[Rfam]
RNA sequence: UCCGUCGUGAGGCGGAAUCUGAAGGAAGCCUAAGGCAAACUCCUGCACCGACGAAUAGAAACUUGAUAGAAGGUCUAAUCAUAAGGGUGAGCUUGCAAAUCAAAGUAAAGCCCAAUACUGUACGGAUUAUGGUUGGAUAAAUCAAGCGGUGACAUGGGAGGGAGGUUAACGCA
Numbered sequence: 001u002c003c004g005u006c007g008u009g010a011g012g013c014g015g016a017a018u019c020u021g022a023a024g025g026a027a028g029c030c031u032a033a034g035g036c037a038a039a040c041u042c043c044u045g046c047a048c049c050g051a052c053g054a055a056u057a058g059a060a061a062c063u064u065g066a067u068a069g070a071a072g073g074u075c076u077a078a079u080c081a082u083a084a085g086g087g088u089g090a091g092c093u094u095g096c097a098a099a100u101c102a103a104a105g106u107a108a109a110g111c112c113c114a115a116u117a118c119u120g121u122a123c124g125g126a127u128u129a130u131g132g133u134u135g136g137a138u139a140a141a142u143c144a145a146g147c148g149g150u151g152a153c154a155u156g157g158g159a160g161g162g163a164g165g166u167u168a169a170c171g172c173a
Stems, first nucleotide, its partner, number of pairs: 001016006030171001035166002040160006046151005062146006073138003077134007085113004091106004

A member of the RNA family "Group II catalytic intron D1-D4-3" from Globicatella sp. HMSC072A10, 173 nucleotides long. The organism belongs to Globicatella, within Bacteria. The pairing is the family consensus, mapped onto this sequence. Rfam links the family to the GO term Group II intron splicing. Rfam describes the family as follows. Group II introns are found in rRNA, tRNA and mRNA of organelles in fungi, plants and protists, and also in mRNA in bacteria.